Shown here is a 192-nucleotide RNA sequence from Salipaludibacillus neizhouensis, a member of the family "6S / SsrS RNA". Lineage of the source: Bacteria > Bacillota > Caryophanales > Bacillaceae > Salipaludibacillus. Rfam describes the family as follows. E. coli 6S RNA was the first non coding RNA to be sequenced, but its function was unknown until recently. It consists of 184 nucleotides that fold into an extended hairpin structure with a large single-stranded internal bulge. The 6S RNA specifically associates with RNA polymerase holoenzyme containing the sigma70 specificity factor. This interaction represses expression from a sigma70-dependent promoter during stationary phase. 6S RNA homologs have recently been identified in most bacterial genomes.
RNA sequence: AGAUGCCUGCUUUGUUGGUGAACUUCAAGUAUAAUUCGAGCCGAACAUUUAUUCACUUUGGGAGCUUUAUAUUAAAAUGUUAACAGCAUGCCUUAUUGAAAAUGAAAGGAAGCUGAAGAUAUUUUUGCAAGCACCCACCUGUCAUUGGCGGGUUCGUGAAACCUGGAAGAUAACCGCAUAUGCGGGCAACGU
Numbered sequence: 001a002g003a004u005g006c007c008u009g010c011u012u013u014g015u016u017g018g019u020g021a022a023c024u025u026c027a028a029g030u031a032u033a034a035u036u037c038g039a040g041c042c043g044a045a046c047a048u049u050u051a052u053u054c055a056c057u058u059u060g061g062g063a064g065c066u067u068u069a070u071a072u073u074a075a076a077a078u079g080u081u082a083a084c085a086g087c088a089u090g091c092c093u094u095a096u097u098g099a100a101a102a103u104g105a106a107a108g109g110a111a112g113c114u115g116a117a118g119a120u121a122u123u124u125u126u127g128c129a130a131g132c133a134c135c136c137a138c139c140u141g142u143c144a145u146u147g148g149c150g151g152g153u154u155c156g157u158g159a160a161a162c163c164u165g166g167a168a169g170a171u172a173a174c175c176g177c178a179u180a181u182g183c184g185g186g187c188a189a190c191g192u
Stems, first nucleotide, its partner, number of pairs: 002190001004188007013178003017175003032161001035158001037156006060136003064132004071126001074125007086113002091109004
Dot-bracket structure: .(.(((((((..(((.(((............(..(.((((((.................(((.((((...(..(((((((.....((...((((...........))))..)).....))))))))..)))).)))..............)))))).)..)...........))))))...))))))).)..